[Rfam]
Shown here is a 49-nucleotide sequence from Rhodobacteraceae bacterium HTCC2083, a member of the family "SAM/SAH riboswitch aptamer". On this family, see Weickhmann et al., Nucleic Acids Res 2019: "The structure of the SAM/SAH-binding riboswitch".
RNA sequence: AGACUGCCACAACGGCUUCCUGACGUGGUGGAAAAAUCUUACUGGAGCA
Dot-bracket structure: ...(((((((..(([[[.[[))..)))))))............]]]]].